[Rfam]
RNA sequence: GCAGUCGUAUUCGUAUCAAUCCAUAUGUGUUGAGGUGGGUUGGAAUGGAAAUUGAACUAAAUUCCACCCCAAUCCACUCCAACACAUGUGGAUUGAGAUGAAUCCGACA
Dot-bracket structure: ...((((.((((((.(((((((((((((((((..(((((((((..((.................))..)))))))))..))))))))))))))))).)))))).)))).
Numbered sequence: 001g002c003a004g005u006c007g008u009a010u011u012c013g014u015a016u017c018a019a020u021c022c023a024u025a026u027g028u029g030u031u032g033a034g035g036u037g038g039g040u041u042g043g044a045a046u047g048g049a050a051a052u053u054g055a056a057c058u059a060a061a062u063u064c065c066a067c068c069c070c071a072a073u074c075c076a077c078u079c080c081a082a083c084a085c086a087u088g089u090g091g092a093u094u095g096a097g098a099u100g101a102a103u104c105c106g107a108c109a
Stems, first nucleotide, its partner, number of pairs: 004108004009103006016096017035077009046066002
MIR5565 microRNA precursor family: a 109-nucleotide sequence from Sorghum bicolor.